[Rfam]
Nucleotides: 078
Stems, first nucleotide, its partner, number of pairs: 004075002007072007016063006023057002026054003
Number, partner (000 for none) and nucleotide at each position: 001000a002000a003000c004075c005074g006000c007072a008071g009070g010069g011068a012067a013066c014000u015000g016063c017062u018061g019060c020059u021058g022000c023057u024056g025000a026054u027053a028052u029000a030000c031000u032000g033000u034000a035000u036000a037000g038000a039000u040000u041000a042000u043000a044000u045000c046000g047000a048000u049000u050000c051000c052028a053027u054026a055000u056024c057023a058021c059020a060019g061018u062017g063016g064000c065000u066013g067012u068011u069010c070009u071008u072007u073000u074005u075004g076000g077000u078000u